[Rfam]
RNA sequence: UCGUAAAGCGGCGAUGAAGCUCGCCAAGGAAUUUUCACCUGAACCGCUUGCUUAAGGCUGAUAGCUUCUACCGGUAU
Numbered sequence: 001u002c003g004u005a006a007a008g009c010g011g012c013g014a015u016g017a018a019g020c021u022c023g024c025c026a027a028g029g030a031a032u033u034u035u036c037a038c039c040u041g042a043a044c045c046g047c048u049u050g051c052u053u054a055a056g057g058c059u060g061a062u063a064g065c066u067u068c069u070a071c072c073g074g075u076a077u
Stems, first nucleotide, its partner, number of pairs: 010025004016068006046058004